[Rfam]
A member of the RNA family "Small nucleolar RNA Z278" from Ananas comosus, 115 nucleotides long. It scores 49 bits against the family's covariance model. Rfam 15.1 lists 1,130 matches to the family in 214 species. snoZ278 is a C/D box small nucleolar RNA. Its methylation guide targets have not been reported. By type it is a C/D-box small nucleolar RNA. On this family, see Chen et al., Nucleic Acids Res 2003: "The high diversity of snoRNAs in plants: identification and comparative study of 120 snoRNA genes from Oryza sativa". The source organism's lineage runs through Eukaryota, Streptophyta, Mesangiospermae, Liliopsida and Ananas.

RNA sequence: GUCGAUGAUUACCAGUCCAACCAAUUGAGGUGUAGAGAGCUCCAAGUCCCUGUGCUACAGUGAGAACCUGCUUGGACUUUCUACAUUCAAAUGCUAUUUUGGAGCAAUUUCUGAU
Number, nucleotide and partner (000 for none) at each position: 001g115002u114003c113004g000005a000006u000007g000008a000009u000010u000011a000012c000013c000014a000015g000016u000017c000018c000019a000020a000021c000022c000023a000024a000025u000026u000027g000028a000029g000030g000031u000032g000033u000034a000035g000036a000037g000038a000039g000040c000041u000042c000043c000044a000045a000046g000047u000048c062049c000050c060051u059052g058053u000054g000055c000056u000057a000058c052059a051060g050061u000062g048063a000064g000065a000066a000067c000068c000069u000070g000071c000072u000073u000074g000075g000076a000077c000078u000079u000080u000081c000082u000083a000084c000085a000086u000087u000088c000089a000090a000091a000092u000093g000094c000095u000096a000097u000098u000099u000100u000101g000102g000103a000104g000105c000106a000107a000108u000109u000110u000111c000112u000113g003114a002115u001